RNA sequence: GGGGACGAUCGGUUUCGACGGUGACCUGUUCGCUGCAGGGAAGCGUGCCGAGAACGCCGGGUCCGCUCGUGGAUGCCCCCCGGCAAAACAAUAAGUGCCAAAUCUAACCGCACUGAGUUCGCUCUCGCUGCCUGAGCUUCGCGCCAGGAUUAACCAGUGAGCAGCCGCUCCGUUCACUCUCCUUCGUCUUCGGGGAGAUGCUGAGCGUCGUUAAGAGGACUUGCCCGAAUCAUCGCGUCGCAGGGUGAUUCGGGGACUUUGACUGCGAAUAUGCCCGCCAUCAGUCGUCUGCGACACCGAUGGGGGCAGAAAAACCGCCGCACGGCCAGCAGACUACGCACGUAGAAGACUGCGGGUACGGUCACCGGACCCGGGUUCAAUUCCCGGCGUCUCCACCA
Numbered sequence: 001g002g003g004g005a006c007g008a009u010c011g012g013u014u015u016c017g018a019c020g021g022u023g024a025c026c027u028g029u030u031c032g033c034u035g036c037a038g039g040g041a042a043g044c045g046u047g048c049c050g051a052g053a054a055c056g057c058c059g060g061g062u063c064c065g066c067u068c069g070u071g072g073a074u075g076c077c078c079c080c081c082g083g084c085a086a087a088a089c090a091a092u093a094a095g096u097g098c099c100a101a102a103u104c105u106a107a108c109c110g111c112a113c114u115g116a117g118u119u120c121g122c123u124c125u126c127g128c129u130g131c132c133u134g135a136g137c138u139u140c141g142c143g144c145c146a147g148g149a150u151u152a153a154c155c156a157g158u159g160a161g162c163a164g165c166c167g168c169u170c171c172g173u174u175c176a177c178u179c180u181c182c183u184u185c186g187u188c189u190u191c192g193g194g195g196a197g198a199u200g201c202u203g204a205g206c207g208u209c210g211u212u213a214a215g216a217g218g219a220c221u222u223g224c225c226c227g228a229a230u231c232a233u234c235g236c237g238u239c240g241c242a243g244g245g246u247g248a249u250u251c252g253g254g255g256a257c258u259u260u261g262a263c264u265g266c267g268a269a270u271a272u273g274c275c276c277g278c279c280a281u282c283a284g285u286c287g288u289c290u291g292c293g294a295c296a297c298c299g300a301u302g303g304g305g306g307c308a309g310a311a312a313a314a315c316c317g318c319c320g321c322a323c324g325g326c327c328a329g330c331a332g333a334c335u336a337c338g339c340a341c342g343u344a345g346a347a348g349a350c351u352g353c354g355g356g357u358a359c360g361g362u363c364a365c366c367g368g369a370c371c372c373g374g375g376u377u378c379a380a381u382u383c384c385c386g387g388c389g390u391c392u393c394c395a396c397c398a
Stems, first nucleotide, its partner, number of pairs: 001394007019367008033355006044342005049069004056084006123149003127145001129143003171207006178198007186220006224254009238268004272308005278303004284295003287334004371387005
RNA: transfer-messenger RNA
Organism: Bifidobacterium samirii